[Rfam]
RNA sequence: CAGGCAUGCUGGAGCCCCGCAGCGGCGCCUGGGCGCUUUGACGACAGACACCUGCCGCCCGACACCGUAACUUCAACCGGGGCUUGA
Dot-bracket structure: ...........((((((((...(((....((((((....................))))))...)))..........))))))))..
Shown here is an 87-nucleotide RNA from Sinorhizobium saheli, a member of the family "ybhL leader". Rfam describes the family as follows. This family is a putative regulatory RNA structure that is found upstream of an uncharacterized membrane protein in alpha-proteobacteria. For this family Rfam cites "Evidence for a second class of S-adenosylmethionine riboswitches and other regulatory RNA motifs in alpha-proteobacteria" (Corbino et al., Genome Biol, 2005). Its family is annotated with regulation of gene expression in the Gene Ontology. The family's RNA type in Rfam is cis-regulatory leader.